[Rfam]
RNA sequence: AGUAUCCUUCGGGGCAGGGUGAAAUUCCCAACCGGCGGUGAUGAAGCCUAGAGCUACUAAGCCCGUGACCCGGUUUACAUUAUGUAAAGCGGUGGAUUUGGUGAAAAACCAAAGCCGACAGUAUAGUCUGGAUGGGAGAAGGAUUAA
Dot-bracket structure: ...(((((((......(((.......))).[[((((((......................[[))))...((...................))....(((((.......)))))]])).(((....]]))).......)))))))...
Numbered sequence: 001a002g003u004a005u006c007c008u009u010c011g012g013g014g015c016a017g018g019g020u021g022a023a024a025u026u027c028c029c030a031a032c033c034g035g036c037g038g039u040g041a042u043g044a045a046g047c048c049u050a051g052a053g054c055u056a057c058u059a060a061g062c063c064c065g066u067g068a069c070c071c072g073g074u075u076u077a078c079a080u081u082a083u084g085u086a087a088a089g090c091g092g093u094g095g096a097u098u099u100g101g102u103g104a105a106a107a108a109c110c111a112a113a114g115c116c117g118a119c120a121g122u123a124u125a126g127u128c129u130g131g132a133u134g135g136g137a138g139a140a141g142g143a144u145u146a147a
Stems, first nucleotide, its partner, number of pairs: 004144007017029003031127002033117002035066004061115002070092002097113005119130003
Rfam assigns this 147-nucleotide RNA from Anaerobacillus alkaliphilus to the family "FMN riboswitch aptamer (RFN element)".
Rfam's curators write: The RFN element is a highly conserved domain that is found frequently in the 5'-untranslated regions of prokaryotic mRNAs that encode for flavin mononucleotide (FMN) biosynthesis and transport proteins.
The family's consensus secondary structure is taken from published work.